RNA sequence: UCAUAGCUUAUAAAACAAGUCUUUUAUUCACUUUGUUGCUUCGUGUUACAGAUGGACAUAUGAAGGGGAAAAAAAGACAAGAUUAAAUGUCAAACGCUUACCUCAUACCGAAGCCAGAAUUAUUUUCCUCAACUCUGCGAUUUGGUAUCUGAGCUUUUGAUACAUUU
Numbered sequence: 001u002c003a004u005a006g007c008u009u010a011u012a013a014a015a016c017a018a019g020u021c022u023u024u025u026a027u028u029c030a031c032u033u034u035g036u037u038g039c040u041u042c043g044u045g046u047u048a049c050a051g052a053u054g055g056a057c058a059u060a061u062g063a064a065g066g067g068g069a070a071a072a073a074a075a076g077a078c079a080a081g082a083u084u085a086a087a088u089g090u091c092a093a094a095c096g097c098u099u100a101c102c103u104c105a106u107a108c109c110g111a112a113g114c115c116a117g118a119a120u121u122a123u124u125u126u127c128c129u130c131a132a133c134u135c136u137g138c139g140a141u142u143u144g145g146u147a148u149c150u151g152a153g154c155u156u157u158u159g160a161u162a163c164a165u166u167u
Stems, first nucleotide, its partner, number of pairs: 019078002022075002031065002034062002037058002040055002089161005096154003108145003112141001114139001115137004123132002
The record is a 167-nucleotide RNA from Magnusiomyces paraingens, which matches "Small nucleolar RNA snR8" in Rfam.
The family is grouped with related families in Rfam's "SNORA56 clan".
It scores 58 bits against the family's covariance model.
The organism belongs to Magnusiomyces, within Eukaryota.